[Rfam]
RNA sequence: CAAGUCCCUGUCGGGUAAGGCUUAACUAGUCACCCGUAUCGAGUGUUGCGCCUGUGGCGGAAGGCGAGGAAAAGAAAUAUUAUUUUCCUCUAAAGCCCGAACAAAACAGGUGAAGCGUACACAGAGAAAUGUAUAGGCCGUAGGGGUUUCGCAGACCCUGAGAACUGGCAUAGCAGACAGCUUCGAAAUAAAAAUUGAGGUCGGUGAGGGGUUUAACGCCCACCGAAACCAACACAGAAGCAUUCGUAUUAGUGAGAAUGUGGAGGGCCUCCGGAGUCAAAAGGUU
Numbered sequence: 001c002a003a004g005u006c007c008c009u010g011u012c013g014g015g016u017a018a019g020g021c022u023u024a025a026c027u028a029g030u031c032a033c034c035c036g037u038a039u040c041g042a043g044u045g046u047u048g049c050g051c052c053u054g055u056g057g058c059g060g061a062a063g064g065c066g067a068g069g070a071a072a073a074g075a076a077a078u079a080u081u082a083u084u085u086u087c088c089u090c091u092a093a094a095g096c097c098c099g100a101a102c103a104a105a106a107c108a109g110g111u112g113a114a115g116c117g118u119a120c121a122c123a124g125a126g127a128a129a130u131g132u133a134u135a136g137g138c139c140g141u142a143g144g145g146g147u148u149u150c151g152c153a154g155a156c157c158c159u160g161a162g163a164a165c166u167g168g169c170a171u172a173g174c175a176g177a178c179a180g181c182u183u184c185g186a187a188a189u190a191a192a193a194a195u196u197g198a199g200g201u202c203g204g205u206g207a208g209g210g211g212u213u214u215a216a217c218g219c220c221c222a223c224c225g226a227a228a229c230c231a232a233c234a235c236a237g238a239a240g241c242a243u244u245c246g247u248a249u250u251a252g253u254g255a256g257a258a259u260g261u262g263g264a265g266g267g268c269c270u271c272c273g274g275a276g277u278c279a280a281a282a283g284g285u286u
Stems, first nucleotide, its partner, number of pairs: 012036004019031004023255001025253002039125002043122004047117002049112007059102001180277006197271004202267001203230003208224002211221001235266001240261006
Rfam assigns this 286-nucleotide RNA sequence from Paraglaciecola sp. MB-3u-78 to the family "Group II catalytic intron D1-D4-6". The organism belongs to Paraglaciecola, within Bacteria. A reference for the family is Bonen and Vogel (2001), "The ins and outs of group II introns", Trends Genet. Gene Ontology term of the family: Group II intron splicing. Group II introns are found in rRNA, tRNA and mRNA of organelles in fungi, plants and protists, and also in mRNA in bacteria.